Annotation
Rfam assigns this 139-nucleotide RNA sequence from Cebus imitator to the family "U4 spliceosomal RNA". From the family's description: U4 small nuclear RNA (U4 snRNA) is a component of the major U2-dependent spliceosome. It is annotated as a spliceosomal small nuclear RNA. The match comes from Rfam's covariance-model search (93 bits). Its Rfam clan is "U4 clan".
[Rfam]
RNA sequence: AGCUUUGCACAGUGGCAGUAUCGUAGCCAAUGAGGCUUAUCUGAGGUGCAAUUAUUGCUAAUUGAAAAGUUCCCAGUACCCUGCUGUGAUGACUUGCAAUAUAGUCAGCAUUGGCAACUUUUGACAGUCUCUAAGGAGA
Dot-bracket structure: ...................((.((.(((.....((.....))..))))).))..............................((((((.(((((........))))).))).)))............((((....))))
Numbered sequence: 001a002g003c004u005u006u007g008c009a010c011a012g013u014g015g016c017a018g019u020a021u022c023g024u025a026g027c028c029a030a031u032g033a034g035g036c037u038u039a040u041c042u043g044a045g046g047u048g049c050a051a052u053u054a055u056u057g058c059u060a061a062u063u064g065a066a067a068a069g070u071u072c073c074c075a076g077u078a079c080c081c082u083g084c085u086g087u088g089a090u091g092a093c094u095u096g097c098a099a100u101a102u103a104g105u106c107a108g109c110a111u112u113g114g115c116a117a118c119u120u121u122u123g124a125c126a127g128u129c130u131c132u133a134a135g136g137a138g139a
Stems, first nucleotide, its partner, number of pairs: 020052002023049002026047003034042002083115003086111003090107005128139004